[Rfam]
RNA sequence: UACUUAUCGAGAGCGACCGAGGGAUUAGGCCCAACGACGUCCGGCAACCACCUUUAAGGAACGGUGCCACAUCCUACAGAAUGUUUCAUUCUGAGAGAUAAGUU
Numbered sequence: 001u002a003c004u005u006a007u008c009g010a011g012a013g014c015g016a017c018c019g020a021g022g023g024a025u026u027a028g029g030c031c032c033a034a035c036g037a038c039g040u041c042c043g044g045c046a047a048c049c050a051c052c053u054u055u056a057a058g059g060a061a062c063g064g065u066g067c068c069a070c071a072u073c074c075u076a077c078a079g080a081a082u083g084u085u086u087c088a089u090u091c092u093g094a095g096a097g098a099u100a101a102g103u104u
Base pairs, nucleotide, nucleotide: 002103003102004101005100006099007098008097013042015041016040017039021032022031023030026076027075028074029073043068044067045066046065048064049063051059052058072096077093078092079091080090081089082088
The record is a 104-nucleotide RNA sequence from Exiguobacterium artemiae, which matches "SAM riboswitch aptamer (S box leader)" in Rfam. Rfam links the family to the GO term regulation of gene expression.